[Rfam]
RNA sequence: UAUAUAGGAGGCCUUCUCUUCCCGGUUCUUCCUGGAGUCGGGAAAAGCUGGGUUGAGAGGGUGUUAUUUAAAAAAA
Number, nucleotide and partner (000 for none) at each position: 001u000002a000003u000004a000005u000006a000007g000008g000009a000010g000011g000012c000013c000014u059015u058016c057017u056018c055019u000020u000021c052022c051023c050024g049025g048026u000027u000028c000029u044030u043031c042032c041033u040034g039035g000036a000037g000038u000039c034040g033041g032042g031043a030044a029045a000046a000047g000048c025049u024050g023051g022052g021053u000054u000055g018056a017057g016058a015059g014060g000061g000062u000063g000064u000065u000066a000067u000068u000069u000070a000071a000072a000073a000074a000075a000076a000